[Rfam]
RNA sequence: UGAGCACGGCCGCCGAAUCCGCGGAUCUCGCGGAACCGGGGAACCACUUUUCUUGGGGUGAAUCGACGCCUUCGCGCCGUAGGGCACUUCCCAGCCCGAACCCGUCAGCUAACCCGGUAGGCGGCAUGAGAAGCGAA
Numbered sequence: 001u002g003a004g005c006a007c008g009g010c011c012g013c014c015g016a017a018u019c020c021g022c023g024g025a026u027c028u029c030g031c032g033g034a035a036c037c038g039g040g041g042a043a044c045c046a047c048u049u050u051u052c053u054u055g056g057g058g059u060g061a062a063u064c065g066a067c068g069c070c071u072u073c074g075c076g077c078c079g080u081a082g083g084g085c086a087c088u089u090c091c092c093a094g095c096c097c098g099a100a101c102c103c104g105u106c107a108g109c110u111a112a113c114c115c116g117g118u119a120g121g122c123g124g125c126a127u128g129a130g131a132a133g134c135g136a137a
Base pairs, nucleotide, nucleotide: 011123012122013121014120018034019033020032021031022030023029024028035118036117037116038115039114040113045055046054056103057102058101064079065078067076082097083096084095085094
RNA: c-di-AMP riboswitch aptamer (ydaO/yuaA leader)